The family of this 118-nucleotide sequence from Trema andersonii is "Small nucleolar RNA Z278". Rfam's curators write: snoZ278 is a C/D box small nucleolar RNA. Its methylation guide targets have not been reported. The family's consensus secondary structure was predicted with PFOLD. It scores 56 bits against the family's covariance model.
[Rfam]
RNA sequence: GCUUAUGACGACUCAAUCCAACAUGUUAGAGGUGUUGUGGAGCCAAGACCCUGUUUCACAGGGAGAACCUACUUGGUGAAGCGACAUUUCAUAUGAUAUUAGCGGAUUUACCUGAGGC
Numbered sequence: 001g002c003u004u005a006u007g008a009c010g011a012c013u014c015a016a017u018c019c020a021a022c023a024u025g026u027u028a029g030a031g032g033u034g035u036u037g038u039g040g041a042g043c044c045a046a047g048a049c050c051c052u053g054u055u056u057c058a059c060a061g062g063g064a065g066a067a068c069c070u071a072c073u074u075g076g077u078g079a080a081g082c083g084a085c086a087u088u089u090c091a092u093a094u095g096a097u098a099u100u101a102g103c104g105g106a107u108u109u110a111c112c113u114g115a116g117g118c
Stems, first nucleotide, its partner, number of pairs: 001118003049063005